[Rfam]
RNA sequence: AAGAAAAUGACGAGACUGUUUGAAGUGUCUCUGCCAUUGUAUGUGAAGAUUGAGGUAUAACAAACCUAACGGGCGAGUCAUCGUUUCGGUCGUCAUUUGCGUGAUUGGCGAAUCGAUUGUUCCUCGUCUACAU
Numbered sequence: 001a002a003g004a005a006a007a008u009g010a011c012g013a014g015a016c017u018g019u020u021u022g023a024a025g026u027g028u029c030u031c032u033g034c035c036a037u038u039g040u041a042u043g044u045g046a047a048g049a050u051u052g053a054g055g056u057a058u059a060a061c062a063a064a065c066c067u068a069a070c071g072g073g074c075g076a077g078u079c080a081u082c083g084u085u086u087c088g089g090u091c092g093u094c095a096u097u098u099g100c101g102u103g104a105u106u107g108g109c110g111a112a113u114c115g116a117u118u119g120u121u122c123c124u125c126g127u128c129u130a131c132a133u
Stems, first nucleotide, its partner, number of pairs: 006038004012031005071129002074126004080117004090111006097104002
RNA: Small nucleolar RNA snoR111
Organism: Abrus precatorius